[Rfam]
RNA sequence: AAUUAAAUAUCGCGAAUGCAUCGUAUAAAGUCGGGAAUAUGGCCCGAAAGUUUCUACCAAGCUACCGUAAAUGGCUUGACUACGAGGUAUAUUGAAUAGUGU
Dot-bracket structure: .................((.(((((.....(((((.......)))))..........(((((((.......)))))))..))))).))..............